Aar sRNA: a 187-nucleotide sequence from Acinetobacter baumannii.
By type it is a small RNA.
NCBI's taxonomy places the organism under Bacteria, Pseudomonadati, Moraxellales, Acinetobacter, Acinetobacter baumannii.
Rfam links the family to the GO term regulation of cellular amino acid metabolic process.
Pairs were carried over by alignment from the consensus structure, which was predicted with mfold.
RNA sequence: UUUAACGUGAAGUAACACUAAUUAACGUGAACCUUAAUGAACAAAUAAGAAUGCAUCACUAAUAUAACUUGAGUAGGUUGAUAUGAACCUCACGACAUUUCUCCUUAAGCCGAAACUGUUUUUAACAGAUUCGUUGUUCUACGCAGUGAUCACCCCAAUCAUUGCGUAUUUUUUUUGUCUUUUUUAA
Numbered sequence: 001u002u003u004a005a006c007g008u009g010a011a012g013u014a015a016c017a018c019u020a021a022u023u024a025a026c027g028u029g030a031a032c033c034u035u036a037a038u039g040a041a042c043a044a045a046u047a048a049g050a051a052u053g054c055a056u057c058a059c060u061a062a063u064a065u066a067a068c069u070u071g072a073g074u075a076g077g078u079u080g081a082u083a084u085g086a087a088c089c090u091c092a093c094g095a096c097a098u099u100u101c102u103c104c105u106u107a108a109g110c111c112g113a114a115a116c117u118g119u120u121u122u123u124a125a126c127a128g129a130u131u132c133g134u135u136g137u138u139c140u141a142c143g144c145a146g147u148g149a150u151c152a153c154c155c156c157a158a159u160c161a162u163u164g165c166g167u168a169u170u171u172u173u174u175u176u177g178u179c180u181u182u183u184u185u186a187a
Base pairs, nucleotide, nucleotide: 016053017052018049019048021046022044023043026039027038028037070187071184072183073182075180076179077178078177079094080093111133112132113131114130116128117127118126119125141167142166143165144164145163146162147161148160149159150158